[Rfam]
RNA sequence: GAGCAAUGAAGAUAAUCGUGCUAUUGUGAUGAUAGGGUCGUCACGCUUCUCUGAUCAAUUGAUGACAAACUGCAUUUCUGAGCCUC
Numbered sequence: 001g002a003g004c005a006a007u008g009a010a011g012a013u014a015a016u017c018g019u020g021c022u023a024u025u026g027u028g029a030u031g032a033u034a035g036g037g038u039c040g041u042c043a044c045g046c047u048u049c050u051c052u053g054a055u056c057a058a059u060u061g062a063u064g065a066c067a068a069a070c071u072g073c074a075u076u077u078c079u080g081a082g083c084c085u086c
Base pairs, nucleotide, nucleotide: 001086002085003083004082
Record summary:
The record is an 86-nucleotide RNA from Hibiscus trionum, which matches "small nucleolar RNA snoR114" in Rfam. Rfam classes the family as a C/D-box small nucleolar RNA. On this family, see Chen and Wu, Nucleic Acids Res 2009: "Mining small RNA sequencing data: a new approach to identify small nucleolar RNAs in Arabidopsis". The match comes from Rfam's covariance-model search (56 bits).